The record is a 66-nucleotide RNA from Pseudomonas phage PS-1, which matches "int-alpA RNA" in Rfam. Acidobacteria (1 example), Planctomycetes (1 example), Proteobacteria. It scores 46 bits against the family's covariance model. Rfam classes the family as a small RNA.
[Rfam]
RNA sequence: GGCGUGGCUAGGUUUAGCGGCCGAAAAGGAGUUGUCUCACUCCCUGCCACGUCCUCACAUGAGACG
Number, nucleotide and partner (000 for none) at each position: 001g053002g052003c051004g050005u049006g048007g047008c046009u000010a000011g022012g021013u020014u019015u000016a000017g000018c000019g014020g013021c012022c011023g000024a000025a000026a000027a000028g043029g042030a041031g040032u000033u000034g000035u066036c000037u064038c063039a000040c031041u030042c029043c028044c000045u000046g008047c007048c006049a005050c004051g003052u002053c001054c000055u000056c000057a000058c000059a000060u000061g000062a000063g038064a037065c000066g035